[Rfam]
RNA sequence: CAAACAAUAGGCGAUGGAGUUCGCCUUCAACCGCCCUCCCCCGAUCCCCGGAAGUGAUGACAACUUCUAACCUCACGCACCCUCAAACCCGCAUCACCGCAAACAGAAACAGGGGGGGGACUGAUGACUCCUGUUUAAUC
Numbered sequence: 001c002a003a004a005c006a007a008u009a010g011g012c013g014a015u016g017g018a019g020u021u022c023g024c025c026u027u028c029a030a031c032c033g034c035c036c037u038c039c040c041c042c043g044a045u046c047c048c049c050g051g052a053a054g055u056g057a058u059g060a061c062a063a064c065u066u067c068u069a070a071c072c073u074c075a076c077g078c079a080c081c082c083u084c085a086a087a088c089c090c091g092c093a094u095c096a097c098c099g100c101a102a103a104c105a106g107a108a109a110c111a112g113g114g115g116g117g118g119g120a121c122u123g124a125u126g127a128c129u130c131c132u133g134u135u136u137a138a139u140c
Stems, first nucleotide, its partner, number of pairs: 010025004016131006033121001035119008